The record is a 282-nucleotide RNA sequence from Papio anubis, which matches "Mason-Pfizer monkey virus packaging signal" in Rfam. By type it is a cis-regulatory element. Rfam describes the family as follows. This family represents a group of sequences that are related to the Mason-Pfizer monkey virus (MPMV) packaging signal. Lineage of the source: Eukaryota > Chordata > Simiiformes > Catarrhini > Papio. The family has 9 seed sequences and 2,921 matches in Rfam 15.1.

[Rfam]
RNA sequence: UGGCGCCCGAACAGGGGCCUCGAAACGAGGGACUCCGUGAGGAAGAGGACGCCAAAGGCGGUCGACCGGUAACAAAGACAAAAGAAAUUAAACUUUUUCGAUCACCGCGGGAACCUGCCGCAUCAGAAUCGAAGGUAAGUGGCGUGUCCGAAAUGGGAAAAGAAUUAAGUCAGCAUCAAAUUUAUGUAGGACAAUUAAAAGAGGCUUUAAAGAUACGAGGAGUAAAGGUUAAAGGUAAUGAUUUGUUUAAAUAUUUUGAUUUUGUAAAAGAUACUUGCCCUU
Number, nucleotide and partner (000 for none) at each position: 001u000002g000003g000004c000005g000006c031007c030008c029009g000010a000011a000012c000013a000014g026015g000016g000017g000018c000019c000020u000021c000022g000023a000024a000025a000026c014027g000028a000029g008030g007031g006032a000033c000034u000035c000036c048037g000038u046039g000040a000041g000042g000043a000044a000045g000046a038047g000048g036049a000050c000051g000052c000053c000054a000055a000056a000057g000058g000059c000060g000061g000062u000063c000064g000065a000066c000067c000068g000069g000070u000071a000072a000073c000074a000075a000076a000077g000078a000079c000080a000081a000082a000083a000084g000085a000086a000087a000088u000089u000090a000091a000092a136093c135094u134095u000096u133097u132098u000099c000100g000101a000102u128103c126104a000105c000106c000107g121108c120109g119110g118111g000112a000113a000114c000115c000116u000117g000118c110119c109120g108121c107122a000123u000124c000125a000126g103127a000128a102129u000130c000131g000132a097133a096134g094135g093136u092137a000138a000139g000140u000141g000142g000143c000144g000145u158146g000147u157148c156149c155150g154151a000152a000153a000154u150155g149156g148157g147158a145159a000160a000161a000162g000163a000164a000165u000166u209167a208168a207169g205170u204171c203172a000173g000174c000175a000176u000177c000178a000179a000180a000181u000182u000183u000184a000185u000186g000187u000188a000189g000190g000191a000192c000193a000194a000195u000196u000197a000198a000199a000200a000201g000202a000203g171204g170205c169206u000207u168208u167209a166210a000211a000212g000213a000214u000215a000216c258217g257218a256219g255220g254221a000222g252223u251224a000225a000226a244227g243228g242229u241230u240231a239232a000233a000234g000235g000236u000237a000238a000239u231240g230241a229242u228243u227244u226245g000246u000247u000248u000249a000250a000251a223252u222253a000254u220255u219256u218257u217258g216259a000260u000261u000262u000263u000264g000265u000266a000267a282268a281269a000270g279271a000272u277273a000274c000275u000276u000277g272278c000279c270280c000281u268282u267